[Rfam]
RNA sequence: GACGGGCCUCCUCGCAUAGUGGUGCGGCCAAUCUGGUCAGGUCGGGAACGAAGCAGCCACAACCGUUUCCCGCUAGUGCCGGGGUUUGGGCUCGUCACC
Numbered sequence: 001g002a003c004g005g006g007c008c009u010c011c012u013c014g015c016a017u018a019g020u021g022g023u024g025c026g027g028c029c030a031a032u033c034u035g036g037u038c039a040g041g042u043c044g045g046g047a048a049c050g051a052a053g054c055a056g057c058c059a060c061a062a063c064c065g066u067u068u069c070c071c072g073c074u075a076g077u078g079c080c081g082g083g084g085u086u087u088g089g090g091c092u093c094g095u096c097a098c099c
Stems, first nucleotide, its partner, number of pairs: 004093005010084005015076001017075006024066004034059004042051003
Dot-bracket structure: ...(((((.((((((.((((((.((((......((((....(((....)))....))))...))))...)))))))...)))))....)))))......
A member of the RNA family "Bacterial small signal recognition particle RNA", 99 nucleotides long. Rfam describes the family as follows. The signal recognition particle (SRP) is a universally conserved ribonucleoprotein involved in the co-translational targeting of proteins to membranes. Pairs were carried over by alignment from the consensus structure, which is taken from published work. It is annotated as a non-coding RNA gene.